Shown here is a 92-nucleotide sequence from Yoonia sediminilitoris, a member of the family "Rhodo-rpoB RNA". It scores 62 bits against the family's covariance model. By type it is a cis-regulatory element.

[Rfam]
RNA sequence: AUGUCGGGAGGGUGCCGGUGGGACGGCAGCCACGAAUAGACAACAAACCCCCGGUCAAAUGGGUGAGGCAUCGCGGCCCGGGCGGUGCAUCA
Numbered sequence: 001a002u003g004u005c006g007g008g009a010g011g012g013u014g015c016c017g018g019u020g021g022g023a024c025g026g027c028a029g030c031c032a033c034g035a036a037u038a039g040a041c042a043a044c045a046a047a048c049c050c051c052c053g054g055u056c057a058a059a060u061g062g063g064u065g066a067g068g069c070a071u072c073g074c075g076g077c078c079c080g081g082g083c084g085g086u087g088c089a090u091c092a
Stems, first nucleotide, its partner, number of pairs: 002042004010031002013028005064092003068088006